The family of this 600-nucleotide part of an RNA from Candidatus Undinarchaeum marinum is "Archaeal small subunit ribosomal RNA". The base pairs follow the family's consensus structure, which is taken from published work. The family is grouped with related families in Rfam's "SSU clan". A reference for the family is Yusupov et al. (2001), "Crystal structure of the ribosome at 5.5 A resolution", Science. Rfam links the family to the GO terms ribosome and structural constituent of ribosome.
RNA sequence: UGACGGGGGAGCACAACAAGGGGUGGAGUCUGCGGUUUAAUUGGAUUAAACGCCGGAAAUCUCACCGGGAGCGACAACAGUAUGAAGGUCAGGCUGACGGUCUUACUCGACUCGUUGAGAGGUGGUGCAUGGCCGCCGUCAGUUCGUGCCGUAAGGUGUUCUGUUAAGUCAGAUAACGAACGAGACCCAUGCCAUUAGUUGCUAUCUGUUCCUUCGGGGACAGAGCACUCUAAUGGGACCGCUGCUGCUAAAGCAGAGGAAGGUGUGGGCAACGGUAGGUCAGUAUGCCCCGAAUCUCCCGGGCUACACGCGGACUACAAUGGUUGAAACAAUGGGCUGCUACGCCGAGAGGCGACGCUAAUCUCUAAAUUCAAUCCAAGUUCGGAUCGAGGGCUGUAACCCGCCCUCGUGAAGCCGGAAUCCCCAGUAAUCGGACGUCACUAUCGUCCGGUGAAUAUGUCCCUGCUCCUUGUACACACCGCCCGUCAAAUCACCCGAGUUAGGUCUGGAUGAGGCCUCAGUUUUUGCUGAGGUCGAAUAUGGACUUAGCAAGGGGGGUUAAGUCGUAACAAGGUAUCCGUAGGGGAACCUGCGGAUAGA
Numbered sequence: 001u002g003a004c005g006g007g008g009g010a011g012c013a014c015a016a017c018a019a020g021g022g023g024u025g026g027a028g029u030c031u032g033c034g035g036u037u038u039a040a041u042u043g044g045a046u047u048a049a050a051c052g053c054c055g056g057a058a059a060u061c062u063c064a065c066c067g068g069g070a071g072c073g074a075c076a077a078c079a080g081u082a083u084g085a086a087g088g089u090c091a092g093g094c095u096g097a098c099g100g101u102c103u104u105a106c107u108c109g110a111c112u113c114g115u116u117g118a119g120a121g122g123u124g125g126u127g128c129a130u131g132g133c134c135g136c137c138g139u140c141a142g143u144u145c146g147u148g149c150c151g152u153a154a155g156g157u158g159u160u161c162u163g164u165u166a167a168g169u170c171a172g173a174u175a176a177c178g179a180a181c182g183a184g185a186c187c188c189a190u191g192c193c194a195u196u197a198g199u200u201g202c203u204a205u206c207u208g209u210u211c212c213u214u215c216g217g218g219g220a221c222a223g224a225g226c227a228c229u230c231u232a233a234u235g236g237g238a239c240c241g242c243u244g245c246u247g248c249u250a251a252a253g254c255a256g257a258g259g260a261a262g263g264u265g266u267g268g269g270c271a272a273c274g275g276u277a278g279g280u281c282a283g284u285a286u287g288c289c290c291c292g293a294a295u296c297u298c299c300c301g302g303g304c305u306a307c308a309c310g311c312g313g314a315c316u317a318c319a320a321u322g323g324u325u326g327a328a329a330c331a332a333u334g335g336g337c338u339g340c341u342a343c344g345c346c347g348a349g350a351g352g353c354g355a356c357g358c359u360a361a362u363c364u365c366u367a368a369a370u371u372c373a374a375u376c377c378a379a380g381u382u383c384g385g386a387u388c389g390a391g392g393g394c395u396g397u398a399a400c401c402c403g404c405c406c407u408c409g410u411g412a413a414g415c416c417g418g419a420a421u422c423c424c425c426a427g428u429a430a431u432c433g434g435a436c437g438u439c440a441c442u443a444u445c446g447u448c449c450g451g452u453g454a455a456u457a458u459g460u461c462c463c464u465g466c467u468c469c470u471u472g473u474a475c476a477c478a479c480c481g482c483c484c485g486u487c488a489a490a491u492c493a494c495c496c497g498a499g500u501u502a503g504g505u506c507u508g509g510a511u512g513a514g515g516c517c518u519c520a521g522u523u524u525u526u527g528c529u530g531a532g533g534u535c536g537a538a539u540a541u542g543g544a545c546u547u548a549g550c551a552a553g554g555g556g557g558g559u560u561a562a563g564u565c566g567u568a569a570c571a572a573g574g575u576a577u578c579c580g581u582a583g584g585g586g587a588a589c590c591u592g593c594g595g596a597u598a599g600a
Stems, first nucleotide, its partner, number of pairs: 001476002003473003007470007016460002020424005025318001027316008035307002041056004065302007075117004079112002087107003091103003121291002124289004130285002132280003135276004142181006148157003160173004187268004192236007202225002206223007239259002242256005322376007334365003339358002343354004383414001388409007430452008479573001481570001484566002487563001489560004494555003499550010510539002514535009575598010